[Rfam]
This 321-nucleotide RNA sequence from Magnetospirillum fulvum belongs to the Rfam family "Alphaproteobacteria transfer-messenger RNA".
RNA sequence: GGGCUAGCGAAAUGAUUUGGCGUGGAUUAUAGUGAUCGAGUCGGGAAACCGACUAUGACGCUAAACGCUUUGCGGAAUAGACGUUGCGGACCCGGGGGCGGUACCCGGCGCCUCCACCAUUUCGACCCGGCCGGAUCGGUUGGGCAUCUCGGGGGCGAAACAGGAUCGACGCGCGCAGUAAAGGCAAAGUUUGCGUUCGGCAUGAUACCACCGUCAUCGGGUCAAUCCUAACAAGUGCCAACGACAACGUUGCUCUUGCCGCUGCGGCUUAACCCGUAAGCGCGGUUCGGGGGGACACCGGGCAACAGAAGUCCCCCCACU
Numbered sequence: 001g002g003g004c005u006a007g008c009g010a011a012a013u014g015a016u017u018u019g020g021c022g023u024g025g026a027u028u029a030u031a032g033u034g035a036u037c038g039a040g041u042c043g044g045g046a047a048a049c050c051g052a053c054u055a056u057g058a059c060g061c062u063a064a065a066c067g068c069u070u071u072g073c074g075g076a077a078u079a080g081a082c083g084u085u086g087c088g089g090a091c092c093c094g095g096g097g098g099c100g101g102u103a104c105c106c107g108g109c110g111c112c113u114c115c116a117c118c119a120u121u122u123c124g125a126c127c128c129g130g131c132c133g134g135a136u137c138g139g140u141u142g143g144g145c146a147u148c149u150c151g152g153g154g155g156c157g158a159a160a161c162a163g164g165a166u167c168g169a170c171g172c173g174c175g176c177a178g179u180a181a182a183g184g185c186a187a188a189g190u191u192u193g194c195g196u197u198c199g200g201c202a203u204g205a206u207a208c209c210a211c212c213g214u215c216a217u218c219g220g221g222u223c224a225a226u227c228c229u230a231a232c233a234a235g236u237g238c239c240a241a242c243g244a245c246a247a248c249g250u251u252g253c254u255c256u257u258g259c260c261g262c263u264g265c266g267g268c269u270u271a272a273c274c275c276g277u278a279a280g281c282g283c284g285g286u287u288c289g290g291g292g293g294g295a296c297a298c299c300g301g302g303c304a305a306c307a308g309a310a311g312u313c314c315c316c317c318c319a320c321u
Stems, first nucleotide, its partner, number of pairs: 040053005057197005067190007082175003086172003092108005109157007198213003203224003208220002283300004290316005

By type it is a non-coding RNA gene. Its family is annotated with RNA catabolic process in the Gene Ontology.